[Rfam]
RNA sequence: AUCUCCUGUGGGAAUGAAGUUCUCCCACGGGCAACCGAAACCGCUGUGUUCAGCUGAUGACUUCUGUGAUUUA
Numbered sequence: 001a002u003c004u005c006c007u008g009u010g011g012g013a014a015u016g017a018a019g020u021u022c023u024c025c026c027a028c029g030g031g032c033a034a035c036c037g038a039a040a041c042c043g044c045u046g047u048g049u050u051c052a053g054c055u056g057a058u059g060a061c062u063u064c065u066g067u068g069a070u071u072u073a
Base pairs, nucleotide, nucleotide: 010026011025012024013023016064017063018062019061020060021059043054044053045052046051

The record is a 73-nucleotide sequence from Pseudoflavonifractor sp. An176, which matches "Fluoride riboswitch aptamer (crcB RNA motif)" in Rfam. A search with the family's covariance model found it, with a score of 44 bits. Taxonomically the source falls in Pseudoflavonifractor (Bacteria, Bacillati, Eubacteriales, Oscillospiraceae). The base pairs follow the family's consensus structure, which is taken from published work.